RNA sequence: CGCCAUCUGGUGCGCACAACCCGUUAUAUUCUUUCGUCUAGGACUAAAGAAUAUUGUGUGCUCUCCACGCUAAGUGGCAUACGCCUACUUUUGGAGGUUCCGCUUUUGGAGUGGACU
Numbered sequence: 001c002g003c004c005a006u007c008u009g010g011u012g013c014g015c016a017c018a019a020c021c022c023g024u025u026a027u028a029u030u031c032u033u034u035c036g037u038c039u040a041g042g043a044c045u046a047a048a049g050a051a052u053a054u055u056g057u058g059u060g061c062u063c064u065c066c067a068c069g070c071u072a073a074g075u076g077g078c079a080u081a082c083g084c085c086u087a088c089u090u091u092u093g094g095a096g097g098u099u100c101c102g103c104u105u106u107u108g109g110a111g112u113g114g115a116c117u
Stems, first nucleotide, its partner, number of pairs: 003077004008067003012063001014061005027053008095117001099115005
RNA: U5 spliceosomal RNA
Organism: Brassica carinata